[Rfam]
RNA sequence: AUGGAAGUGAGGAUUAUUUCCCCAGAUGAUCGAAGCUGAUUAUACUGUGCUACAAAAUUUUCUCUUGCUGAGAAAUCUAAGCCAGAUAUCUGAUCCAU
Numbered sequence: 001a002u003g004g005a006a007g008u009g010a011g012g013a014u015u016a017u018u019u020c021c022c023c024a025g026a027u028g029a030u031c032g033a034a035g036c037u038g039a040u041u042a043u044a045c046u047g048u049g050c051u052a053c054a055a056a057a058u059u060u061u062c063u064c065u066u067g068c069u070g071a072g073a074a075a076u077c078u079a080a081g082c083c084a085g086a087u088a089u090c091u092g093a094u095c096c097a098u
Base pairs, nucleotide, nucleotide: 001098002097003096004095005094
Record summary
The record is a 98-nucleotide sequence from Kalanchoe fedtschenkoi, which matches "Small nucleolar RNA Z103" in Rfam. It scores 93 bits against the family's covariance model. Rfam 15.1 lists 2,844 matches to the family in 233 species.